[Rfam]
RNA: FMN riboswitch aptamer (RFN element)
Organism: Savagea serpentis
RNA sequence: UUUUUCCUUCGGGGCAAGGUGCAAUUCCUUACCGACGGUGACUCGAACGAAUAGGUUCGACAGUCCGUGACCCGCAAGCAUAUCGCGAGCGGUUGAGCUGGUGAAAUUCCAGCACCGACAGUUAAAGUCUGGAUGGGAGAAGGAAAAU
Numbered sequence: 001u002u003u004u005u006c007c008u009u010c011g012g013g014g015c016a017a018g019g020u021g022c023a024a025u026u027c028c029u030u031a032c033c034g035a036c037g038g039u040g041a042c043u044c045g046a047a048c049g050a051a052u053a054g055g056u057u058c059g060a061c062a063g064u065c066c067g068u069g070a071c072c073c074g075c076a077a078g079c080a081u082a083u084c085g086c087g088a089g090c091g092g093u094u095g096a097g098c099u100g101g102u103g104a105a106a107u108u109c110c111a112g113c114a115c116c117g118a119c120a121g122u123u124a125a126a127g128u129c130u131g132g133a134u135g136g137g138a139g140a141a142g143g144a145a146a147a148u
Stems, first nucleotide, its partner, number of pairs: 003146008017029003031128002033117002035068004063115002072092002097113005119131003